A member of the RNA family "Group II catalytic intron D1-D4-3" from Tepiditoga spiralis, 173 nucleotides long. Rfam links the family to the GO term Group II intron splicing. On this family, see Bonen and Vogel, Trends Genet 2001: "The ins and outs of group II introns".
RNA sequence: UUCAUCGUGAGGUGAAAUCUGAAGGAAGCCUAAGGCAAAGUUCCGAUCCGAGGGACACAAAUCACAUAAGAGGCUGCCGAACUCUGGAUGAGUUUGCAUAACAAAACGAAGUCCGUAUCCUCCGAAAGAGCCGGAAGUAUAUGUGGCGGAUAUAUGGAAUGAAAGAACGUGUU
Numbered sequence: 001u002u003c004a005u006c007g008u009g010a011g012g013u014g015a016a017a018u019c020u021g022a023a024g025g026a027a028g029c030c031u032a033a034g035g036c037a038a039a040g041u042u043c044c045g046a047u048c049c050g051a052g053g054g055a056c057a058c059a060a061a062u063c064a065c066a067u068a069a070g071a072g073g074c075u076g077c078c079g080a081a082c083u084c085u086g087g088a089u090g091a092g093u094u095u096g097c098a099u100a101a102c103a104a105a106a107c108g109a110a111g112u113c114c115g116u117a118u119c120c121u122c123c124g125a126a127a128g129a130g131c132c133g134g135a136a137g138u139a140u141a142u143g144u145g146g147c148g149g150a151u152a153u154a155u156g157g158a159a160u161g162a163a164a165g166a167a168c169g170u171g172u173u
Base pairs, nucleotide, nucleotide: 001016002015003014004013005012006011028173030171036165040160041159042158043157044156045155046151047150048149049148050147062146063145064144065143066142067141073138074137075136077134078133079132082130083129084128086114087113088112089111092107093106094105095104